RNA sequence: GCUCGACAAAGGCAAAUCUGGUGAAAACUAGAGACGCAAAGUUACCGGUCUAAGGGGAAACCUAGGACAGCGGAACUACCGAA
Numbered sequence: 001g002c003u004c005g006a007c008a009a010a011g012g013c014a015a016a017u018c019u020g021g022u023g024a025a026a027a028c029u030a031g032a033g034a035c036g037c038a039a040a041g042u043u044a045c046c047g048g049u050c051u052a053a054g055g056g057g058a059a060a061c062c063u064a065g066g067a068c069a070g071c072g073g074a075a076c077u078a079c080c081g082a083a
Base pairs, nucleotide, nucleotide: 012037013036017032018031019030020029021028022027040077041076042075043074045073046072047071048068049067050066055062056061